[Rfam]
RNA sequence: AGGUGGGGUAGAGGCGCGAAACUUAUGAGUAGAUAGUUAGAGAAUGACAACGAUGAAGACUAUCAGAAAGGAAGUUUUGCCGAAGUGGUGAUAAGAGUCAAGAUUAUCAUUGCUGGGGCUACAUUAAAUAAAUGUAGCACUGUCACAAUUAUUAUUUCACAAAAUAAUUGUGGAGAACUACUGUUGUU
Numbered sequence: 001a002g003g004u005g006g007g008g009u010a011g012a013g014g015c016g017c018g019a020a021a022c023u024u025a026u027g028a029g030u031a032g033a034u035a036g037u038u039a040g041a042g043a044a045u046g047a048c049a050a051c052g053a054u055g056a057a058g059a060c061u062a063u064c065a066g067a068a069a070g071g072a073a074g075u076u077u078u079g080c081c082g083a084a085g086u087g088g089u090g091a092u093a094a095g096a097g098u099c100a101a102g103a104u105u106a107u108c109a110u111u112g113c114u115g116g117g118g119c120u121a122c123a124u125u126a127a128a129u130a131a132a133u134g135u136a137g138c139a140c141u142g143u144c145a146c147a148a149u150u151a152u153u154a155u156u157u158c159a160c161a162a163a164a165u166a167a168u169u170g171u172g173g174a175g176a177a178c179u180a181c182u183g184u185u186g187u188u
Stems, first nucleotide, its partner, number of pairs: 007182005016080009032064007084114011115141002118138008143173011
Rfam assigns this 188-nucleotide RNA sequence from Anaerobacillus alkalidiazotrophicus to the family "Lysine riboswitch aptamer".
Riboswitches are metabolite binding domains within certain messenger RNAs that serve as precision sensors for their corresponding targets.
A search with the family's covariance model found it, with a score of 128 bits.
Taxonomically the source falls in Anaerobacillus (Bacteria, Bacillati, Bacilli, Caryophanales).